[Rfam]
RNA sequence: AGAUGUGAGGUGAUCUGGCUGUGACAUCUGUCACCCCAUUGAUCGCCAGGGUUGAUUUGGCUGAUCUGGCUGGCUAGGUAAGUGUCCCCUUCCUCCCUCAUCACUCCAUGUACAUCCCUCCCGAAGCUGUGCGCUCAGUCGAAGAGGACAACUUUCCCCAAUAGAGAUGUACUGUUCAUCGGUCAAGGAUAUACAGUAGCUGCGCUCCCCUGCUAGAACUUCCAAACAAGCUCUGUGUUUGUCCUGAAAUACUGGGUCGUAGGACAUGCUAGCAAAUAAUCUGCAAAGUUCAAGUGCUGUCUUUUU
Numbered sequence: 001a002g003a004u005g006u007g008a009g010g011u012g013a014u015c016u017g018g019c020u021g022u023g024a025c026a027u028c029u030g031u032c033a034c035c036c037c038a039u040u041g042a043u044c045g046c047c048a049g050g051g052u053u054g055a056u057u058u059g060g061c062u063g064a065u066c067u068g069g070c071u072g073g074c075u076a077g078g079u080a081a082g083u084g085u086c087c088c089c090u091u092c093c094u095c096c097c098u099c100a101u102c103a104c105u106c107c108a109u110g111u112a113c114a115u116c117c118c119u120c121c122c123g124a125a126g127c128u129g130u131g132c133g134c135u136c137a138g139u140c141g142a143a144g145a146g147g148a149c150a151a152c153u154u155u156c157c158c159c160a161a162u163a164g165a166g167a168u169g170u171a172c173u174g175u176u177c178a179u180c181g182g183u184c185a186a187g188g189a190u191a192u193a194c195a196g197u198a199g200c201u202g203c204g205c206u207c208c209c210c211u212g213c214u215a216g217a218a219c220u221u222c223c224a225a226a227c228a229a230g231c232u233c234u235g236u237g238u239u240u241g242u243c244c245u246g247a248a249a250u251a252c253u254g255g256g257u258c259g260u261a262g263g264a265c266a267u268g269c270u271a272g273c274a275a276a277u278a279a280u281c282u283g284c285a286a287a288g289u290u291c292a293a294g295u296g297c298u299g300u301c302u303u304u305u306u
Stems, first nucleotide, its partner, number of pairs: 002106002005101006012092002017089002023086005029080004034073002036069003041066004045061003116169001118166003121138001123136002126134002139161001141159001146157003199273003206266001209263005220255002226250001229245002
Annotation:
The record is a 306-nucleotide RNA from Chunga burmeisteri, which matches "7SK RNA" in Rfam. The family's consensus secondary structure is taken from published work. The literature on the family includes a 2002 paper in Curr Biol by Blencowe, "Transcription: surprising role for an elusive small nuclear RNA". The family's RNA type in Rfam is non-coding RNA gene. Rfam describes the family as follows. 7SK was discovered as an abundant small nuclear RNA in the mid-70s but a possible function has only recently been suggested. Two independent studies have found that 7SK RNA binds the CDK9/cyclin T complex (known as elongation factor P-TEFb). P-TEFb activates transcription by phosphorylating the C-terminal domain of RNA polymerase II. This process is negatively regulated by the 7SK RNP. The secondary structure of 7SK RNA shown here was proposed by Wasserman and Steitz on the basis of chemical modification and enzymatic cleavage experiments. This family contains a number of annotated pseudogenes and 7SK derived repeats. The threshold is artificially high to minimise the pseudogene count. The family has 45 seed sequences and 49,373 matches in Rfam 15.1. The match comes from Rfam's covariance-model search (220 bits).